The family of this 99-nucleotide sequence from Cucumis sativus is "Small nucleolar RNA Z157/R69/R10". Gene Ontology terms of the family: RNA processing and nucleolus. A search with the family's covariance model found it, with a score of 62 bits. Rfam 15.1 lists 836 matches to the family in 232 species.

RNA sequence: UGAUGUGCUGUGACGAGGCAAUUUUUGUGGACUAGAGUUUCUGAUCCGGGUACAAUUCCUGGGAUCUGAUUAUAUACCCUUGGCUGUCUGAGCACUCUU
Numbered sequence: 001u002g003a004u005g006u007g008c009u010g011u012g013a014c015g016a017g018g019c020a021a022u023u024u025u026u027g028u029g030g031a032c033u034a035g036a037g038u039u040u041c042u043g044a045u046c047c048g049g050g051u052a053c054a055a056u057u058c059c060u061g062g063g064a065u066c067u068g069a070u071u072a073u074a075u076a077c078c079c080u081u082g083g084c085u086g087u088c089u090g091a092g093c094a095c096u097c098u099u
Stems, first nucleotide, its partner, number of pairs: 002098001005095004040069002045064001046062005
Dot-bracket structure: .(..((((...............................((...((((((.......))))).)...))......................))))..).